This 124-nucleotide RNA from Bauldia litoralis belongs to the Rfam family "Alphaproteobacterial ar14". Its family is annotated with biological process involved in symbiotic interaction in the Gene Ontology. It scores 68 bits against the family's covariance model. The source organism's lineage runs through Bacteria, Alphaproteobacteria, Hyphomicrobiales, Kaistiaceae and Bauldia.
RNA sequence: UUCAGUCGCCUCGGAGCUCUCCUCCCUGCUCCGAACGAGAAGAGACCGGAAUCUUCUCCUCCCUGGUUCCGGCCUCGUAAAUGAGAAGCGCCCACCGAUCCUUCCUCCCCGGUGGGCGCUUUUC
Numbered sequence: 001u002u003c004a005g006u007c008g009c010c011u012c013g014g015a016g017c018u019c020u021c022c023u024c025c026c027u028g029c030u031c032c033g034a035a036c037g038a039g040a041a042g043a044g045a046c047c048g049g050a051a052u053c054u055u056c057u058c059c060u061c062c063c064u065g066g067u068u069c070c071g072g073c074c075u076c077g078u079a080a081a082u083g084a085g086a087a088g089c090g091c092c093c094a095c096c097g098a099u100c101c102u103u104c105c106u107c108c109c110c111g112g113u114g115g116g117c118g119c120u121u122u123u124c
Base pairs, nucleotide, nucleotide: 007037008036011034012033013032014031015030016029017028042076043075044074046072047071048070049069050068051067088119089118090117091116092115093114094113095112096111097110